[Rfam]
RNA sequence: ACAAAAUUUGGACCGUCGGUCUUCUGAGCAAUAUCACCCACUGGGUAGAAGAUCUUCCUUUCGUCGU
Numbered sequence: 001a002c003a004a005a006a007u008u009u010g011g012a013c014c015g016u017c018g019g020u021c022u023u024c025u026g027a028g029c030a031a032u033a034u035c036a037c038c039c040a041c042u043g044g045g046u047a048g049a050a051g052a053u054c055u056u057c058c059u060u061u062c063g064u065c066g067u
Stems, first nucleotide, its partner, number of pairs: 004064001010058003015053003020049003024045002027042002

Rfam assigns this 67-nucleotide RNA sequence from Bombyx mori to the family "mir-2774 microRNA precursor family". The base pairs follow the family's consensus structure, which was predicted with RNAalifold. The match comes from Rfam's covariance-model search (60 bits). The literature on the family includes a 2010 paper in BMC Genomics by Liu et al., "MicroRNAs of Bombyx mori identified by Solexa sequencing".